This 92-nucleotide sequence from Kribbella sandramycini belongs to the Rfam family "ZMP/ZTP riboswitch aptamer (pfl RNA motif)".

RNA sequence: GCAACGGACCGCUACUGGCGUUGAGGUGGAAGACCACCGGGGAACGGUCUGCCGGUAGCUGCCGGCCGAAGCCGCGCGCCUGGGCAACCGAC
Number, nucleotide and partner (000 for none) at each position: 001g000002c000003a000004a000005c051006g050007g049008a048009c047010c046011g045012c000013u000014a000015c041016u040017g080018g079019c078020g077021u076022u000023g000024a000025g000026g037027u036028g035029g034030a000031a000032g000033a000034c029035c028036a027037c026038c000039g000040g016041g015042g000043a000044a000045c011046g010047g009048u008049c007050u006051g005052c000053c000054g000055g000056u000057a000058g000059c000060u000061g000062c000063c000064g000065g000066c000067c000068g000069a000070a000071g085072c084073c083074g000075c000076g021077c020078g019079c018080c017081u000082g000083g073084g072085c071086a000087a000088c000089c000090g000091a000092c000
Pairs were carried over by alignment from the consensus structure, which is taken from published work.